[Rfam]
Rfam assigns this 336-nucleotide sequence from Candidatus Portiera aleyrodidarum to the family "Bacterial RNase P class A".
RNA sequence: UAAUAUAGUUAUGCAGUCACUUAUAAAAAAAGUUAUAAGAGGAAAGUCCGGACUCAUUGAGCAAAGUGCCAGUUAAUAACUGGGCAAAGAUUUUUGACGGAAAGUGCACAAGAAAAAAUACAAUCUAUUUUAUAGAUAAUGGUGAAAAGGUUUGGUAAAAGCAUACCACGUAUUUGGAAACAAAUUCGUUAUGUAAACCCCACUUUGAGUAAAACUAAAUAAGAAUUUCAAGAGCUCUAAAAAAAUUCUGGUAGGUUGCAUAAAUAUAUAUAGUAAUAUAUAUAUUAGAUAAAUGACUGUAAUUUGAACAGGAUCCGGCUUAUUGUAUAUUAAUAA
Numbered sequence: 001u002a003a004u005a006u007a008g009u010u011a012u013g014c015a016g017u018c019a020c021u022u023a024u025a026a027a028a029a030a031a032g033u034u035a036u037a038a039g040a041g042g043a044a045a046g047u048c049c050g051g052a053c054u055c056a057u058u059g060a061g062c063a064a065a066g067u068g069c070c071a072g073u074u075a076a077u078a079a080c081u082g083g084g085c086a087a088a089g090a091u092u093u094u095u096g097a098c099g100g101a102a103a104g105u106g107c108a109c110a111a112g113a114a115a116a117a118a119u120a121c122a123a124u125c126u127a128u129u130u131u132a133u134a135g136a137u138a139a140u141g142g143u144g145a146a147a148a149g150g151u152u153u154g155g156u157a158a159a160a161g162c163a164u165a166c167c168a169c170g171u172a173u174u175u176g177g178a179a180a181c182a183a184a185u186u187c188g189u190u191a192u193g194u195a196a197a198c199c200c201c202a203c204u205u206u207g208a209g210u211a212a213a214a215c216u217a218a219a220u221a222a223g224a225a226u227u228u229c230a231a232g233a234g235c236u237c238u239a240a241a242a243a244a245a246u247u248c249u250g251g252u253a254g255g256u257u258g259c260a261u262a263a264a265u266a267u268a269u270a271u272a273g274u275a276a277u278a279u280a281u282a283u284a285u286u287a288g289a290u291a292a293a294u295g296a297c298u299g300u301a302a303u304u305u306g307a308a309c310a311g312g313a314u315c316c317g318g319c320u321u322a323u324u325g326u327a328u329a330u331u332a333a334u335a336a
Stems, first nucleotide, its partner, number of pairs: 001332007010325001011323001012301007020039007044321003048318005053209004059237004064205005069083005084098001085096004099200002104198002106194003121141002123137006149167003153163002168189003172185005213257004223248006265284008
The match comes from Rfam's covariance-model search (199 bits). Rfam describes the family as follows. Ribonuclease P (RNase P) is a ubiquitous endoribonuclease, found in archaea, bacteria and eukarya as well as chloroplasts and mitochondria.